[Rfam]
RNA: Enterococcus sRNA 68 (Lacto-3 RNA)
Organism: Lentilactobacillus kisonensis
RNA sequence: UGCGAUGAGUCGAGAGACCACACAGCAAUUUGCUGUUCGCGCAAGCGACUAAGGUGGUAUUUUGAGCGGGACACAUUUUAAGCACGGAUUUGUGGUGUCUGACUUCGAUGGAUUGUGGAGUCU
Numbered sequence: 001u002g003c004g005a006u007g008a009g010u011c012g013a014g015a016g017a018c019c020a021c022a023c024a025g026c027a028a029u030u031u032g033c034u035g036u037u038c039g040c041g042c043a044a045g046c047g048a049c050u051a052a053g054g055u056g057g058u059a060u061u062u063u064g065a066g067c068g069g070g071a072c073a074c075a076u077u078u079u080a081a082g083c084a085c086g087g088a089u090u091u092g093u094g095g096u097g098u099c100u101g102a103c104u105u106c107g108a109u110g111g112a113u114u115g116u117g118g119a120g121u122c123u
Stems, first nucleotide, its partner, number of pairs: 017058005022036005037048004070099005083094003111122004